A member of the RNA family "uup RNA" from Vibrio metoecus, 46 nucleotides long. Rfam's curators put it in the seed alignment. Pairs were carried over by alignment from the consensus structure, which is taken from published work. Taxonomically the source falls in Vibrio (Bacteria, Pseudomonadati, Pseudomonadota, Gammaproteobacteria).
RNA sequence: GAAGGCUGAACUCCGCGCAUUAACACGAUGAAGUGUUGUUCGGAGC
Dot-bracket structure: ..........(((((.(((.................))).))))).